[Rfam]
RNA sequence: GGUGAUAAAUUGUGCCGUGAAAUAGACGCAGCGGACCCGGGGGCAGUACCCGGCGGUUCCACCACUGGCCCCGGCCGCUCAAAGGGCGGACGGGAUCAUUGACGGGGCCGAACUAGGAUCGACGUGUGUUGAAAGACGGUAUUUUCUCCCGGCCUGAGUAAGCCGUAAAACUGUUUAAAACUCAUAAGUGCCAACGAUAACGAGGCUCUUGCUCUUGCUGCGUAA
Numbered sequence: 001g002g003u004g005a006u007a008a009a010u011u012g013u014g015c016c017g018u019g020a021a022a023u024a025g026a027c028g029c030a031g032c033g034g035a036c037c038c039g040g041g042g043g044c045a046g047u048a049c050c051c052g053g054c055g056g057u058u059c060c061a062c063c064a065c066u067g068g069c070c071c072c073g074g075c076c077g078c079u080c081a082a083a084g085g086g087c088g089g090a091c092g093g094g095a096u097c098a099u100u101g102a103c104g105g106g107g108c109c110g111a112a113c114u115a116g117g118a119u120c121g122a123c124g125u126g127u128g129u130u131g132a133a134a135g136a137c138g139g140u141a142u143u144u145u146c147u148c149c150c151g152g153c154c155u156g157a158g159u160a161a162g163c164c165g166u167a168a169a170a171c172u173g174u175u176u177a178a179a180a181c182u183c184a185u186a187a188g189u190g191c192c193a194a195c196g197a198u199a200a201c202g203a204g205g206c207u208c209u210u211g212c213u214c215u216u217g218c219u220g221c222g223u224a225a
Base pairs, nucleotide, nucleotide: 001149002148004146005145015139016138017137018136027128028127029126031125032124033123037053038052039051040050041049054110055109056108057107058106059105060104150165151164152163153162

A member of the RNA family "permuted transfer-messenger RNA" from Sphingobium fontiphilum, 225 nucleotides long.